[Rfam]
Description
The record is a 77-nucleotide RNA from Parnassius apollo, which matches "Mammalian CPEB3 ribozyme" in Rfam. The organism belongs to Parnassius, within Eukaryota. Rfam's curators write: The mammalian CPEB3 ribozyme is a self cleaving RNA located in the second intron of the CPEB3 gene which belongs to a family of genes regulating messenger RNA polyadenylation.

RNA sequence: AUAAAAUUAUAGAAGGUCAUUGAAGAAGCGUGCUCGUCGCGACCCCUGCCAGCCCUUUUCAGGACUACAAUUCUACA
Numbered sequence: 001a002u003a004a005a006a007u008u009a010u011a012g013a014a015g016g017u018c019a020u021u022g023a024a025g026a027a028g029c030g031u032g033c034u035c036g037u038c039g040c041g042a043c044c045c046c047u048g049c050c051a052g053c054c055c056u057u058u059u060c061a062g063g064a065c066u067a068c069a070a071u072u073c074u075a076c077a
Base pairs, nucleotide, nucleotide: 015044016043017042018041021077022076024074025073026072027071028040029039030038051066052065054063055062056061
Dot-bracket structure: ..............((((..[[.[[[[(((.......)))))))......((.(((....))).))....]]]].]]